[Rfam]
RNA sequence: UUUUUAUUAGACGUUGACCGUCAUGUGUCGCACUUUUAUUGAAUGCUGACAUUAAUUAGGUGCACGAAAUUAAUGUCCAAUAAAAACACAACACGUGACGGUCAACGUCC
Number, nucleotide and partner (000 for none) at each position: 001u000002u000003u000004u000005u000006a000007u000008u000009a000010g000011a000012c000013g000014u000015u000016g000017a000018c000019c000020g099021u098022c097023a096024u000025g094026u093027g000028u000029c000030g089031c000032a000033c000034u085035u084036u083037u000038a081039u080040u079041g000042a000043a000044u000045g000046c000047u000048g000049a000050c000051a000052u000053u000054a000055a000056u000057u000058a000059g000060g000061u000062g000063c000064a000065c000066g000067a000068a000069a000070u000071u000072a000073a000074u000075g000076u000077c000078c000079a040080a039081u038082a000083a036084a035085a034086a000087c000088a000089c030090a000091a000092c000093a026094c025095g000096u023097g022098a021099c020100g000101g000102u000103c000104a000105a000106c000107g000108u000109c000110c000